RNA sequence: GUUGGAUCAAAGAUGCUAAUUUAAUACUGCGUUAUCUGUCUGAUCGUUCCUUCUUUGAAAGGAACUGAAGAUAACACUAAUCUCAUACUGAGAUCCAAU
Numbered sequence: 001g002u003u004g005g006a007u008c009a010a011a012g013a014u015g016c017u018a019a020u021u022u023a024a025u026a027c028u029g030c031g032u033u034a035u036c037u038g039u040c041u042g043a044u045c046g047u048u049c050c051u052u053c054u055u056u057g058a059a060a061g062g063a064a065c066u067g068a069a070g071a072u073a074a075c076a077c078u079a080a081u082c083u084c085a086u087a088c089u090g091a092g093a094u095c096c097a098a099u
Stems, first nucleotide, its partner, number of pairs: 001099007

Record summary
Rfam assigns this 99-nucleotide RNA sequence from Hibiscus syriacus to the family "Small nucleolar RNA snoR27". Pairs were carried over by alignment from the consensus structure, which was predicted with WAR. The match comes from Rfam's covariance-model search (66 bits). Its Rfam clan is "snR68 clan".